[Rfam]
RNA sequence: AUAUGGCAGGUGUGGUAUCAAUUAGAUGUGUGAAGUGUACUUAUGAACUCAAUUUAGAGGCUAAUUGAUAUUCUGACCUGCUAAUU
Numbered sequence: 001a002u003a004u005g006g007c008a009g010g011u012g013u014g015g016u017a018u019c020a021a022u023u024a025g026a027u028g029u030g031u032g033a034a035g036u037g038u039a040c041u042u043a044u045g046a047a048c049u050c051a052a053u054u055u056a057g058a059g060g061c062u063a064a065u066u067g068a069u070a071u072u073c074u075g076a077c078c079u080g081c082u083a084a085u086u
Stems, first nucleotide, its partner, number of pairs: 001086001004083007